RNA sequence: AAAUUUUAUAACCGCAAAGUAUGUAUAACCUCAAUAAUCUGGUUUGAGGGUCUCUACCAGGAACCAUAACUCCUGACUACAAAAUUCCUAUUUUUGUGG
Numbered sequence: 001a002a003a004u005u006u007u008a009u010a011a012c013c014g015c016a017a018a019g020u021a022u023g024u025a026u027a028a029c030c031u032c033a034a035u036a037a038u039c040u041g042g043u044u045u046g047a048g049g050g051u052c053u054c055u056a057c058c059a060g061g062a063a064c065c066a067u068a069a070c071u072c073c074u075g076a077c078u079a080c081a082a083a084a085u086u087c088c089u090a091u092u093u094u095u096g097u098g099g
Stems, first nucleotide, its partner, number of pairs: 018085001020083001022081004029049006058075005
Purine riboswitch aptamer: a 99-nucleotide RNA from Siminovitchia fortis. Its family is annotated with purine nucleobase biosynthetic process in the Gene Ontology. Pairs were carried over by alignment from the consensus structure, which is taken from published work. It scores 63 bits against the family's covariance model. About the family: Riboswitches are metabolite binding domains within certain messenger RNAs that serve as precision sensors for their corresponding targets. Allosteric rearrangement of mRNA structure is mediated by ligand binding, and this results in modulation of gene expression.